[Rfam]
RNA sequence: GCCGAGCGUCGUGGCGGGCGCUUGUGAUCCAGUUUCUAGGAGGCAAAAGCACCAAUUGACGGGUGUGCACAGAGCGAGUGUCUAGAGCAAGGGCCAAGUCAACAAGGGGCGCAGACGGGAACGUUUGUGUUCCUGGUUGUUUAAAGAGCGGGGCAACGGUUCAGGCCCGAAAGGGAGCAGACAAAACCCGCCGCUUGGUCACAGUGUUCAGACAGCACUUGCGAGCAUCAUCGUCGAUUGGAUUUGCUUUUU
Numbered sequence: 001g002c003c004g005a006g007c008g009u010c011g012u013g014g015c016g017g018g019c020g021c022u023u024g025u026g027a028u029c030c031a032g033u034u035u036c037u038a039g040g041a042g043g044c045a046a047a048a049g050c051a052c053c054a055a056u057u058g059a060c061g062g063g064u065g066u067g068c069a070c071a072g073a074g075c076g077a078g079u080g081u082c083u084a085g086a087g088c089a090a091g092g093g094c095c096a097a098g099u100c101a102a103c104a105a106g107g108g109g110c111g112c113a114g115a116c117g118g119g120a121a122c123g124u125u126u127g128u129g130u131u132c133c134u135g136g137u138u139g140u141u142u143a144a145a146g147a148g149c150g151g152g153g154c155a156a157c158g159g160u161u162c163a164g165g166c167c168c169g170a171a172a173g174g175g176a177g178c179a180g181a182c183a184a185a186a187c188c189c190g191c192c193g194c195u196u197g198g199u200c201a202c203a204g205u206g207u208u209c210a211g212a213c214a215g216c217a218c219u220u221g222c223g224a225g226c227a228u229c230a231u232c233g234u235c236g237a238u239u240g241g242a243u244u245u246g247c248u249u250u251u252u
Base pairs, nucleotide, nucleotide: 001044002043003042004023005022006021007020008019009018010017028041029040030039046250047249048248049247050246051245052241053240054239055238056237057236058235059234060233061232062231065228066227067226068225070223074222075221076220077219078218079217080216081215082211083210085209086208087207088206089205091202093199094198095197096196097195098194099193100139101138102137103136105134106133107132108131109130110129111128112127113126114125115124116123117122140146141145148191149190150189151188152187159182160181161180166175167174168173
RNA: Metazoan signal recognition particle RNA